[Rfam]
RNA sequence: CGAUGGGGUAGAGGCGCAGGGUUUAUUAGUAGGCUGUUGUGAGGAUGACAACGUUGACCGCAGCUAAAAGGAAACAUUGCCGAAGCAAUCAGGAAAGGUCAAAAGCCGGAUUGUUGGGGUUACCUUGAAUAAGGGUAACACUGUCAUUAUGAGGGAAACCUUCAUAAUGAGGAGCUACAGAUCGU
Numbered sequence: 001c002g003a004u005g006g007g008g009u010a011g012a013g014g015c016g017c018a019g020g021g022u023u024u025a026u027u028a029g030u031a032g033g034c035u036g037u038u039g040u041g042a043g044g045a046u047g048a049c050a051a052c053g054u055u056g057a058c059c060g061c062a063g064c065u066a067a068a069a070g071g072a073a074a075c076a077u078u079g080c081c082g083a084a085g086c087a088a089u090c091a092g093g094a095a096a097g098g099u100c101a102a103a104a105g106c107c108g109g110a111u112u113g114u115u116g117g118g119g120u121u122a123c124c125u126u127g128a129a130u131a132a133g134g135g136u137a138a139c140a141c142u143g144u145c146a147u148u149a150u151g152a153g154g155g156a157a158a159c160c161u162u163c164a165u166a167a168u169g170a171g172g173a174g175c176u177a178c179a180g181a182u183c184g185u
Stems, first nucleotide, its partner, number of pairs: 008178004016080004021075004032065006039058001084115007092107002116142002119139008144170009
RNA: Lysine riboswitch aptamer
Organism: Mesobacillus campisalis